[Rfam]
RNA sequence: GCUACUCGCAACGUCCCUUAUCUUUUGAAAUCCAGGUUUCGAUCACUAAUUGGUGUGAUCACCGGGAUUCUCAGUAGAUUAGGGCAUCGAGUCGGCA
Numbered sequence: 001g002c003u004a005c006u007c008g009c010a011a012c013g014u015c016c017c018u019u020a021u022c023u024u025u026u027g028a029a030a031u032c033c034a035g036g037u038u039u040c041g042a043u044c045a046c047u048a049a050u051u052g053g054u055g056u057g058a059u060c061a062c063c064g065g066g067a068u069u070c071u072c073a074g075u076a077g078a079u080u081a082g083g084g085c086a087u088c089g090a091g092u093c094g095g096c097a
Base pairs, nucleotide, nucleotide: 001096002095003094004092005091006090007089008088013085015084016083017082018081020079021078022077023076025074026073027072028071029069030068031067032066033065035063036062037061041060042059043058044057045056046055
Dot-bracket structure: ((((((((....(.((((.((((.(((((((((.(((...((((((........))))))))).))))).)))).)))).)))))..))))).))).
Shown here is a 97-nucleotide RNA sequence from Pristionchus pacificus, a member of the family "mir-2240 microRNA precursor family".
Lineage of the source: Eukaryota > Nematoda > Diplogasteromorpha > Neodiplogasteridae > Pristionchus.
Gene Ontology terms of the family: miRNA-mediated post-transcriptional gene silencing and RISC complex.